[Rfam]
RNA sequence: AAGGGCAGAGAUAAAAACACGGUCCGGUUGGUAGUCCGGACGCGACGGGGAACCGCCGCCAGUAACCUGCCUCCUUUGGUUGUCCGUUCUCUGUGCGCAGAAC
Numbered sequence: 001a002a003g004g005g006c007a008g009a010g011a012u013a014a015a016a017a018c019a020c021g022g023u024c025c026g027g028u029u030g031g032u033a034g035u036c037c038g039g040a041c042g043c044g045a046c047g048g049g050g051a052a053c054c055g056c057c058g059c060c061a062g063u064a065a066c067c068u069g070c071c072u073c074c075u076u077u078g079g080u081u082g083u084c085c086g087u088u089c090u091c092u093g094u095g096c097g098c099a100g101a102a103c
Stems, first nucleotide, its partner, number of pairs: 005094007022041006042059003046055002069080003
Dot-bracket structure: ....(((((((..........((((((........))))))(((.((......)).))).........(((......))).......))))))).........
Shown here is a 103-nucleotide RNA sequence from Agathobaculum faecis, a member of the family "azaaromatic riboswitch aptamer (yjdF RNA)". It scores 82 bits against the family's covariance model. The base pairs follow the family's consensus structure, which is taken from published work. NCBI's taxonomy places the organism under Bacteria, Bacillati, Bacillota, Eubacteriales, Agathobaculum.